RNA sequence: UUCCACAGCUACUGGUCUGCAGCUGUUCUUAUGUAGCAGUUGUGGCAUUCCUCUGUGGGAAAGAAACUCAUGACACAGUCAUACACCUCUUUCUUAGCAAACGGAAAGUGGGUAUCAGGGUGACAGACACAA
Numbered sequence: 001u002u003c004c005a006c007a008g009c010u011a012c013u014g015g016u017c018u019g020c021a022g023c024u025g026u027u028c029u030u031a032u033g034u035a036g037c038a039g040u041u042g043u044g045g046c047a048u049u050c051c052u053c054u055g056u057g058g059g060a061a062a063g064a065a066a067c068u069c070a071u072g073a074c075a076c077a078g079u080c081a082u083a084c085a086c087c088u089c090u091u092u093c094u095u096a097g098c099a100a101a102c103g104g105a106a107a108g109u110g111g112g113u114a115u116c117a118g119g120g121u122g123a124c125a126g127a128c129a130c131a132a
Stems, first nucleotide, its partner, number of pairs: 003058004017045009073121002076118001086112003089108006

This 132-nucleotide RNA from Microcebus murinus belongs to the Rfam family "Small nucleolar RNA SNORA41". ACA41 is a member of the H/ACA class of snoRNA that guide the sites of modification of uridines to pseudouridines. The family's RNA type in Rfam is H/ACA-box small nucleolar RNA. Rfam's curators put it in the seed alignment. Lineage of the source: Eukaryota > Mammalia > Theria > Euarchontoglires > Microcebus. Rfam 15.1 lists 676 matches to the family in 522 species.